[Rfam]
RNA sequence: AGAUGCCCGCGUUAGGGAUUGCAGCGGCAUCCUUUUUUGCCAAUAAAAGCAAAAAAGAUAUAGCGUAAAGCCAGACCCGAC
Numbered sequence: 001a002g003a004u005g006c007c008c009g010c011g012u013u014a015g016g017g018a019u020u021g022c023a024g025c026g027g028c029a030u031c032c033u034u035u036u037u038u039g040c041c042a043a044u045a046a047a048a049g050c051a052a053a054a055a056a057g058a059u060a061u062a063g064c065g066u067a068a069a070g071c072c073a074g075a076c077c078c079g080a081c
Base pairs, nucleotide, nucleotide: 016072017071019069020068024064025063029059030058031057035054036053037052038051039050040049
RNA: Flavo-1 RNA
Organism: Algibacter luteus